A member of the RNA family "MIR408 microRNA precursor family" from Microthlaspi erraticum, 126 nucleotides long. NCBI's taxonomy places the organism under Eukaryota, Magnoliopsida, eudicotyledons, Pentapetalae, Microthlaspi. For this family Rfam cites "Novel and stress-regulated microRNAs and other small RNAs from Arabidopsis" (Sunkar and Zhu, Plant Cell, 2004).
[Rfam]
RNA sequence: GAGAGAAAGAAAGAGGGAGCCAGGGAAGAGGCAGUGCAUGGGAAGAGACAAAACACAGUCGUUUGAUGUUUUAGUAAACUCCAUCCAUGCUCUGCUUGUUCCCUGUCUCUCUCAUUACCACUUUGU
Numbered sequence: 001g002a003g004a005g006a007a008a009g010a011a012a013g014a015g016g017g018a019g020c021c022a023g024g025g026a027a028g029a030g031g032c033a034g035u036g037c038a039u040g041g042g043a044a045g046a047g048a049c050a051a052a053a054c055a056c057a058g059u060c061g062u063u064u065g066a067u068g069u070u071u072u073a074g075u076a077a078a079c080u081c082c083a084u085c086c087a088u089g090c091u092c093u094g095c096u097u098g099u100u101c102c103c104u105g106u107c108u109c110u111c112u113c114a115u116u117a118c119c120a121c122u123u124u125g126u
Stems, first nucleotide, its partner, number of pairs: 017109003021105007029097006036090006045081002
The match comes from Rfam's covariance-model search (65 bits).